[Rfam]
Nucleotides: 073
Stems, first nucleotide, its partner, number of pairs: 030068008
Number, partner (000 for none) and nucleotide at each position: 001000a002000u003000g004000c005000c006000u007000u008000g009000u010000g011000a012000u013000a014000a015000a016000g017000g018000u019000a020000c021000a022000a023000u024000a025000a026000u027000u028000u029000c030068a031067u032066c033065g034064c035063a036062a037061c038000a039000a040000c041000c042000a043000u044000a045000a046000a047000a048000g049000a050000a051000a052000u053000c054000a055000a056000a057000a058000a059000g060000a061037g062036u063035u064034g065033c066032g067031a068030u069000a070000u071000a072000a073000u